[Rfam]
RNA: Burkholderia RNA 11
Organism: Rubrivivax gelatinosus
RNA sequence: GCAACCUGCGGCUGUCGCGCGAGGACCCGGUGGUCUUCCGCUCGCUGCUGGGCAUCUCGUGGAUGUGGGCCUUCGGCGCGGUCUUCCUGUCGCAGUUCCCGGCCUUCGCCAAGGACGUGCUG
Numbered sequence: 001g002c003a004a005c006c007u008g009c010g011g012c013u014g015u016c017g018c019g020c021g022a023g024g025a026c027c028c029g030g031u032g033g034u035c036u037u038c039c040g041c042u043c044g045c046u047g048c049u050g051g052g053c054a055u056c057u058c059g060u061g062g063a064u065g066u067g068g069g070c071c072u073u074c075g076g077c078g079c080g081g082u083c084u085u086c087c088u089g090u091c092g093c094a095g096u097u098c099c100c101g102g103c104c105u106u107c108g109c110c111a112a113g114g115a116c117g118u119g120c121u122g
Stems, first nucleotide, its partner, number of pairs: 010049003014045002017042001021038006051121005057115002060112001062110001063105001065103001067099002071095002074092005080087002